[Rfam]
Nucleotides: 059
Base pairs, nucleotide, nucleotide: 009051010050011049012048013047014046015045027044028043029042030041031040032039
Number, partner (000 for none) and nucleotide at each position: 001000c002000u003000c004000u005000g006000a007000c008000a009051c010050c011049u012048u013047u014046c015045a016000c017000a018000a019000c020000g021000g022000a023000u024000c025000g026000u027044c028043c029042g030041g031040c032039a033000c034000g035000u036000a037000c038000c039032u040031g041030c042029c043028g044027g045015u046014g047013a048012a049011g050010g051009g052000a053000a054000a055000g056000a057000c058000c059000a

The family of this 59-nucleotide RNA from Occultella aeris is "msiK RNA".
The base pairs follow the family's consensus structure, which is taken from published work.
Rfam classes the family as a cis-regulatory element.